RNA sequence: AUGGCAGUGAUGAUUGGCGCAGGGGUACGGACCUCAGCUAGAUCAUGGGAGCUGAGUGCAAACUGUUGAUUUCAGUGCAGCUGGCGUGUGGCUGGCUCACUGGAAACAGGUUUGCAUGAGAACUUCGCCAAAGACUGAGCCAU
Numbered sequence: 001a002u003g004g005c006a007g008u009g010a011u012g013a014u015u016g017g018c019g020c021a022g023g024g025g026u027a028c029g030g031a032c033c034u035c036a037g038c039u040a041g042a043u044c045a046u047g048g049g050a051g052c053u054g055a056g057u058g059c060a061a062a063c064u065g066u067u068g069a070u071u072u073c074a075g076u077g078c079a080g081c082u083g084g085c086g087u088g089u090g091g092c093u094g095g096c097u098c099a100c101u102g103g104a105a106a107c108a109g110g111u112u113u114g115c116a117u118g119a120g121a122a123c124u125u126c127g128c129c130a131a132a133g134a135c136u137g138a139g140c141c142a143u
Base pairs, nucleotide, nucleotide: 001143002142003141004140005139